[Rfam]
RNA sequence: UCACCUCUCCCUUAAGGGAGAGGUCGUGUAAAUGCUUGCAUUUAUACGGGUGAGGGU
Dot-bracket structure: ...(((((((......)))))))..(((((((((....)))))))))..........